[Rfam]
Rfam assigns this 86-nucleotide RNA sequence from Desulforamulus ferrireducens to the family "skipping-rope RNA". By type it is a small RNA. A search with the family's covariance model found it, with a score of 68 bits.
RNA sequence: GAAGAUUGAGGGCAGAAAGGCAGCUGCCACGCCGCUUUUAUAGCGGUCCUUAAAGAGAUGUAGGGUACGCCGUCCUACCAAUGUUC
Number, nucleotide and partner (000 for none) at each position: 001g086002a085003a084004g000005a082006u081007u080008g079009a000010g000011g028012g027013c026014a025015g024016a000017a000018a000019g071020g070021c069022a000023g000024c015025u014026g013027c012028c011029a000030c055031g047032c046033c045034g044035c043036u042037u000038u000039u000040a000041u000042a036043g035044c034045g033046g032047u031048c000049c000050u000051u000052a000053a000054a000055g030056a000057g000058a000059u000060g078061u077062a076063g075064g074065g000066u000067a000068c000069g021070c020071c019072g000073u000074c064075c063076u062077a061078c060079c008080a007081a006082u005083g000084u003085u002086c001